[Rfam]
RNA sequence: AAGUGAGGACGACCUCACCGCUCGAGAAUCACCGGGGACGACCCC
Number, nucleotide and partner (000 for none) at each position: 001a000002a000003g018004u017005g016006a015007g014008g013009a000010c000011g000012a000013c008014c007015u006016c005017a004018c003019c000020g000021c000022u000023c000024g000025a000026g000027a000028a000029u000030c000031a000032c000033c000034g045035g044036g043037g042038a000039c000040g000041a000042c037043c036044c035045c034
RNA: Guanidine-II riboswitch aptamer (mini-ykkC)
Organism: Methylophaga thiooxydans